[Rfam]
Shown here is a 52-nucleotide RNA sequence from Citreimonas salinaria, a member of the family "serC leader". The base pairs follow the family's consensus structure. Taxonomically the source falls in Citreimonas (Bacteria, Pseudomonadota, Alphaproteobacteria, Rhodobacterales). From the family's description: This family is a putative regulatory RNA structure that is found upstream of the serC-serA operon in some alpha-proteobacteria. The final stem of the structure overlaps the ribosome binding site of the serC reading frame.
RNA sequence: UUGUGGGACACCCCUCCCCAACGAGGGGCGACUAUCUGGAAGGUUAGCAGAC
Numbered sequence: 001u002u003g004u005g006g007g008a009c010a011c012c013c014c015u016c017c018c019c020a021a022c023g024a025g026g027g028g029c030g031a032c033u034a035u036c037u038g039g040a041a042g043g044u045u046a047g048c049a050g051a052c
Stems, first nucleotide, its partner, number of pairs: 011028006032047003036043002